The family of this 85-nucleotide RNA from Solanum lycopersicum is "MIR8024 microRNA precursor family". Its family is annotated with RISC complex and miRNA-mediated post-transcriptional gene silencing in the Gene Ontology.
RNA sequence: UUAAAGAAUUGGAAGACCUCAACUUGCAUACUAGAAGAAUUUGAAGACCUCAACUUGCACACUUGAAGAAUUUGAAACCUUAACU
Numbered sequence: 001u002u003a004a005a006g007a008a009u010u011g012g013a014a015g016a017c018c019u020c021a022a023c024u025u026g027c028a029u030a031c032u033a034g035a036a037g038a039a040u041u042u043g044a045a046g047a048c049c050u051c052a053a054c055u056u057g058c059a060c061a062c063u064u065g066a067a068g069a070a071u072u073u074g075a076a077a078c079c080u081u082a083a084c085u
Stems, first nucleotide, its partner, number of pairs: 001083004006078001009076002012073003017068001019066003025059004032053001034051002037048001